[Rfam]
RNA sequence: GGCGGAGGGAAGCUCAUCGUUGGGGCUACAAGCUGAGUGCAUUACGUCACUCCCUCAAUCCAGCCCUUGGGAAGGUCUGAGACGAGGGCCAAUAGCGGCCCUAGCAGGGCUCCUCCCGCGAUUUGGGGGGGGUGAGUUCCCAGAAAGUGGGGCCCGGUUCGGGGGUAGACUGGGCAGGAGAUGCCCGUGUGAUUCCACCUACCCUGAACAAGGGAGGUGGCCUGGGCGGAUGCCUCCCCCGACUGGGCUUGGAAACGACUCACGGCCAGCCAAGUGAGUGCAAUGGCUGAGGUGGGAUACCUCCUCGAGGAUCCCAUAACCCAAUUCAGACUACUCUCCCCCGCC
Numbered sequence: 001g002g003c004g005g006a007g008g009g010a011a012g013c014u015c016a017u018c019g020u021u022g023g024g025g026c027u028a029c030a031a032g033c034u035g036a037g038u039g040c041a042u043u044a045c046g047u048c049a050c051u052c053c054c055u056c057a058a059u060c061c062a063g064c065c066c067u068u069g070g071g072a073a074g075g076u077c078u079g080a081g082a083c084g085a086g087g088g089c090c091a092a093u094a095g096c097g098g099c100c101c102u103a104g105c106a107g108g109g110c111u112c113c114u115c116c117c118g119c120g121a122u123u124u125g126g127g128g129g130g131g132g133u134g135a136g137u138u139c140c141c142a143g144a145a146a147g148u149g150g151g152g153c154c155c156g157g158u159u160c161g162g163g164g165g166u167a168g169a170c171u172g173g174g175c176a177g178g179a180g181a182u183g184c185c186c187g188u189g190u191g192a193u194u195c196c197a198c199c200u201a202c203c204c205u206g207a208a209c210a211a212g213g214g215a216g217g218u219g220g221c222c223u224g225g226g227c228g229g230a231u232g233c234c235u236c237c238c239c240c241g242a243c244u245g246g247g248c249u250u251g252g253a254a255a256c257g258a259c260u261c262a263c264g265g266c267c268a269g270c271c272a273a274g275u276g277a278g279u280g281c282a283a284u285g286g287c288u289g290a291g292g293u294g295g296g297a298u299a300c301c302u303c304c305u306c307g308a309g310g311a312u313c314c315c316a317u318a319a320c321c322c323a324a325u326u327c328a329g330a331c332u333a334c335u336c337u338c339c340c341c342c343g344c345c
Stems, first nucleotide, its partner, number of pairs: 001345004008339003013291004018286001022067004035052005040046001077329005087267004097111005112131006132263007152248008292317007
Shown here is a 345-nucleotide sequence from Sarcophilus harrisii, a member of the family "Nuclear RNase P". Rfam classes the family as a ribozyme. It scores 249 bits against the family's covariance model.